[Rfam]
RNA sequence: AGGUAGAUGCACCCUGAUUACUUGCCCCUGGCUUAAACCAGGGGCUUUUUAU
Numbered sequence: 001a002g003g004u005a006g007a008u009g010c011a012c013c014c015u016g017a018u019u020a021c022u023u024g025c026c027c028c029u030g031g032c033u034u035a036a037a038c039c040a041g042g043g044g045c046u047u048u049u050u051a052u
Base pairs, nucleotide, nucleotide: 002013003012004011025044026043027042028041029040030039031038
About this RNA:
Rfam assigns this 52-nucleotide RNA sequence from Drouetiella hepatica to the family "Nitrogen stress-induced RNA 1". The base pairs follow the family's consensus structure. Taxonomically the source falls in Drouetiella hepatica (Bacteria, Cyanophyceae, Oculatellaceae, Drouetiella). The literature on the family includes a 2010 paper in J Mol Biol by Ionescu et al., "Heterocyst-specific transcription of NsiR1, a non-coding RNA encoded in a tandem array of direct repeats in cyanobacteria".